TD-1 RNA: a 121-nucleotide RNA sequence from Treponema denticola. Its Rfam clan is "TD (Treponema denticola) motifs".
RNA sequence: GUUUAUCUUCGAGUUUUGUGCAAAGCACAAAACAUCAUGUGGUUGUAUGCGGUUUGUUUACAAACCGCUUGAAAAAACUUUUUUCGGAAAUUGAUAUUUCCUGCAAAAAGUUUUUAUAGGA
Number, nucleotide and partner (000 for none) at each position: 001g000002u000003u000004u000005a000006u000007c000008u000009u000010c000011g036012a035013g033014u032015u031016u030017u029018g028019u027020g026021c000022a000023a000024a000025g000026c020027a019028c018029a017030a016031a015032a014033c013034a000035u012036c011037a000038u000039g000040u000041g000042g000043u000044u000045g000046u000047a000048u000049g068050c067051g066052g065053u064054u063055u062056g061057u000058u000059u000060a000061c056062a055063a054064a053065c052066c051067g050068c049069u000070u000071g000072a000073a115074a114075a113076a112077a111078c110079u109080u108081u107082u106083u105084u000085c000086g101087g100088a099089a098090a097091u096092u000093g000094a000095u000096a091097u090098u089099u088100c087101c086102u000103g000104c000105a083106a082107a081108a080109a079110g078111u077112u076113u075114u074115u073116a000117u000118a000119g000120g000121a000

It is annotated as a cis-regulatory element. The source organism's lineage runs through Bacteria, Pseudomonadati, Treponematales, Treponema and Treponema denticola.